The record is a 143-nucleotide sequence from Xenopus laevis, which matches "Wolbachia sRNA 46" in Rfam.
[Rfam]
RNA sequence: GAGGCAUUUUGCAUGGAUAGGCCAAUUCCUGCGGUCAUCCCCGCAACCCAGUUUCUAAAGCAACAUUACAUAUGUACAUGUAAUGUUGCUUUAGAAACUGGGUUGCGGGGAUGACCGCAGGAAUUGGCCUAUCCAUGCAAAAU
Numbered sequence: 001g002a003g004g005c006a007u008u009u010u011g012c013a014u015g016g017a018u019a020g021g022c023c024a025a026u027u028c029c030u031g032c033g034g035u036c037a038u039c040c041c042c043g044c045a046a047c048c049c050a051g052u053u054u055c056u057a058a059a060g061c062a063a064c065a066u067u068a069c070a071u072a073u074g075u076a077c078a079u080g081u082a083a084u085g086u087u088g089c090u091u092u093a094g095a096a097a098c099u100g101g102g103u104u105g106c107g108g109g110g111a112u113g114a115c116c117g118c119a120g121g122a123a124u125u126g127g128c129c130u131a132u133c134c135a136u137g138c139a140a141a142a143u
Base pairs, nucleotide, nucleotide: 011138012137013136014135015134021128022127023126024125025124026123027122028121029120030119031118032117033116034115035114036113037112038111039110040109041108042107043106044105045104046103047102048101049100050099051098
By type it is a small RNA. Taxonomically the source falls in Xenopus (Eukaryota, Metazoa, Tetrapoda, Anura). The literature on the family includes a 2014 paper in Proc Natl Acad Sci U S A by Mayoral et al., "Wolbachia small noncoding RNAs and their role in cross-kingdom communications".